Bacterial small signal recognition particle RNA: a 97-nucleotide RNA from Leucobacter sp. OH1287. About the family: The signal recognition particle (SRP) is a universally conserved ribonucleoprotein involved in the co-translational targeting of proteins to membranes. For this family Rfam cites "Prediction of signal recognition particle RNA genes" (Regalia et al., Nucleic Acids Res, 2002).
RNA sequence: GAUGGCUCCUCGCGUGGCGCAAUCCGGGUGAACUCCCCCAGGGCAGAAAUGCAGCAAGGGUAACUCGGCUCUUGCGGGUGCGCGAGGAGUUUUUCAU
Numbered sequence: 001g002a003u004g005g006c007u008c009c010u011c012g013c014g015u016g017g018c019g020c021a022a023u024c025c026g027g028g029u030g031a032a033c034u035c036c037c038c039c040a041g042g043g044c045a046g047a048a049a050u051g052c053a054g055c056a057a058g059g060g061u062a063a064c065u066c067g068g069c070u071c072u073u074g075c076g077g078g079u080g081c082g083c084g085a086g087g088a089g090u091u092u093u094u095c096a097u
Stems, first nucleotide, its partner, number of pairs: 004091011015078001018076005024068006035060003043052003
Dot-bracket structure: ...((((((((((((..(((((.((((((.....(((.....(((....))).....)))..))))))...))))).)..)))))))))))......

Taxonomically the source falls in Leucobacter (Bacteria, Actinomycetota, Actinomycetes, Microbacteriaceae).